Record summary: This 69-nucleotide RNA sequence from Mus musculus belongs to the Rfam family "tRNA". Transfer RNA (tRNA) molecules are approximately 80 nucleotides in length. NCBI's taxonomy places the organism under Eukaryota, Eumetazoa, Euteleostomi, Glires, Mus musculus.
RNA sequence: GUUUCUGUAGUUGAAUUACAACGAUGAUUUUUCAUGUCAUUGGUCGCAGUUGAAUGCUGUGUAGAAAUA
Numbered sequence: 001g002u003u004u005c006u007g008u009a010g011u012u013g014a015a016u017u018a019c020a021a022c023g024a025u026g027a028u029u030u031u032u033c034a035u036g037u038c039a040u041u042g043g044u045c046g047c048a049g050u051u052g053a054a055u056g057c058u059g060u061g062u063a064g065a066a067a068u069a
Base pairs, nucleotide, nucleotide: 001068002067003066004065005064006063007062010022011021012020013019024040025039026038027037028036045061046060047059048058049057
Dot-bracket structure: (((((((..((((.....)))).(((((.......)))))....(((((.......)))))))))))).